[Rfam]
RNA sequence: UAGGCGGGUUCCGAAAAGCCUGAAAGAGAGUAGGAG
Numbered sequence: 001u002a003g004g005c006g007g008g009u010u011c012c013g014a015a016a017a018g019c020c021u022g023a024a025a026g027a028g029a030g031u032a033g034g035a036g
Stems, first nucleotide, its partner, number of pairs: 002021004010035003
Dot-bracket structure: .((((....[[[.....))))...........]]].
RNA: DUF805b RNA